[Rfam]
RNA sequence: AGGGCAGUAUCUUUGUCGAAAAGAACUGCACCGCGCCGGCAAAAUGAAUGAAUAAAGAUAAUCUGCCUUGAUCCUUGCAGAAGGACUGGGACAGAGGG
Numbered sequence: 001a002g003g004g005c006a007g008u009a010u011c012u013u014u015g016u017c018g019a020a021a022a023g024a025a026c027u028g029c030a031c032c033g034c035g036c037c038g039g040c041a042a043a044a045u046g047a048a049u050g051a052a053u054a055a056a057g058a059u060a061a062u063c064u065g066c067c068u069u070g071a072u073c074c075u076u077g078c079a080g081a082a083g084g085a086c087u088g089g090g091a092c093a094g095a096g097g098g
Base pairs, nucleotide, nucleotide: 002032003031004029005028006027007026008025010024011023012022013021063094064093065092066090067089068088070086072085073084074083075082076081
The family of this 98-nucleotide RNA sequence from Geobacillus thermodenitrificans is "pan motif". The organism belongs to Geobacillus thermodenitrificans, within Bacteria. Rfam classes the family as a cis-regulatory element.